Rfam assigns this 69-nucleotide RNA from Dysgonomonas sp. PF1-16 to the family "Fluoride riboswitch aptamer (crcB RNA motif)". The family's consensus secondary structure is taken from published work. NCBI's taxonomy places the organism under Bacteria, Bacteroidota, Bacteroidia, Dysgonomonadaceae, Dysgonomonas.
RNA sequence: UUCAACAAAGGGGAUGGAACUCCCCUGUUAUAAACCGCUAAUAAAGUAGCUGAUAGUUCCUGCUUAACU
Number, nucleotide and partner (000 for none) at each position: 001u000002u000003c000004a000005a000006c000007a000008a000009a000010g025011g024012g023013g022014a000015u000016g060017g059018a058019a057020c056021u055022c013023c012024c011025c010026u000027g000028u000029u000030a000031u000032a000033a000034a000035c000036c000037g050038c049039u048040a047041a000042u000043a000044a000045a000046g000047u040048a039049g038050c037051u000052g000053a000054u000055a021056g020057u019058u018059c017060c016061u000062g000063c000064u000065u000066a000067a000068c000069u000